[Rfam]
RNA sequence: AGGCGCGUAGCUCAAUCGGUAGAGUGGUGGUCUCCAAAACCAUAGGUUGAAGGUUUGAAUCCUUUCGCGCCUG
Numbered sequence: 001a002g003g004c005g006c007g008u009a010g011c012u013c014a015a016u017c018g019g020u021a022g023a024g025u026g027g028u029g030g031u032c033u034c035c036a037a038a039a040c041c042a043u044a045g046g047u048u049g050a051a052g053g054u055u056u057g058a059a060u061c062c063u064u065u066c067g068c069g070c071c072u073g
Stems, first nucleotide, its partner, number of pairs: 001072007010025004027043005049065005
The family of this 73-nucleotide sequence from Megasphaera sp. AM44-1BH is "tRNA".
By type it is a transfer RNA.
NCBI's taxonomy places the organism under Bacteria, Negativicutes, Veillonellales, Veillonellaceae, Megasphaera.
A search with the family's covariance model found it, with a score of 68 bits.
Gene Ontology term of the family: triplet codon-amino acid adaptor activity.